[Rfam]
RNA sequence: ACGGUCUGGGAAAAGGCUCCUGUGUGGCUGUACCCGCCCGAGGUGGGUGCAGCCCCGUACCAGACAGCCCGACCUUGACCUAAAGUAAAAUCCCAGAGGAGGAGGAACCUCUUCCCUGGGGUUAGAAUUUGCAGUAACAGGUGUGGACAUCCUAGCAGCAGUUUGGUGGUCAUGUAUGAUACUGCAAACAGGA
Numbered sequence: 001a002c003g004g005u006c007u008g009g010g011a012a013a014a015g016g017c018u019c020c021u022g023u024g025u026g027g028c029u030g031u032a033c034c035c036g037c038c039c040g041a042g043g044u045g046g047g048u049g050c051a052g053c054c055c056c057g058u059a060c061c062a063g064a065c066a067g068c069c070c071g072a073c074c075u076u077g078a079c080c081u082a083a084a085g086u087a088a089a090a091u092c093c094c095a096g097a098g099g100a101g102g103a104g105g106a107a108c109c110u111c112u113u114c115c116c117u118g119g120g121g122u123u124a125g126a127a128u129u130u131g132c133a134g135u136a137a138c139a140g141g142u143g144u145g146g147a148c149a150u151c152c153u154a155g156c157a158g159c160a161g162u163u164u165g166g167u168g169g170u171c172a173u174g175u176a177u178g179a180u181a182c183u184g185c186a187a188a189c190a191g192g193a
Base pairs, nucleotide, nucleotide: 003080004079005078006077008075009074010073015069016068017067018066020063021062022061024060025059026054027053028052029051030050032048033047034046092120093119094118096115098113099112128188129187130186131185132184133183134182135181136180138178139177144172145171146170148168149167150166151165154163155162156161
RNA: Small Cajal body specific RNA 16